[Rfam]
RNA: TPP riboswitch aptamer (THI element)
Organism: Clostridium grantii
RNA sequence: AAAUUAACACAGGGGAGCUGGUGAUUCCAGCUGAGAGUAAGAAUAAAAUUCUUAGACCCUUAACCUGAUCUGGAUAAUGCCAGCGUAGGAUGAUGUUUAUGAAAAUAUA
Dot-bracket structure: .....((((.((((..(((((.....)))))......(((((((...)))))))..))))...((((..((((......))))..))))....))))............